[Rfam]
RNA sequence: CGAAGUUCAGGGCAAACCUGCCAAAAGGCAGGGACGCAAAGCCGAGGGUCUAAGGCGUAUGUCACGCUAUGACAGCCUGGUUGCCGAU
Numbered sequence: 001c002g003a004a005g006u007u008c009a010g011g012g013c014a015a016a017c018c019u020g021c022c023a024a025a026a027g028g029c030a031g032g033g034a035c036g037c038a039a040a041g042c043c044g045a046g047g048g049u050c051u052a053a054g055g056c057g058u059a060u061g062u063c064a065c066g067c068u069a070u071g072a073c074a075g076c077c078u079g080g081u082u083g084c085c086g087a088u
Base pairs, nucleotide, nucleotide: 012037013036017032018031019030020029021028022027040082041081042080043079045078046077047076048073049072050071055067056066057065058064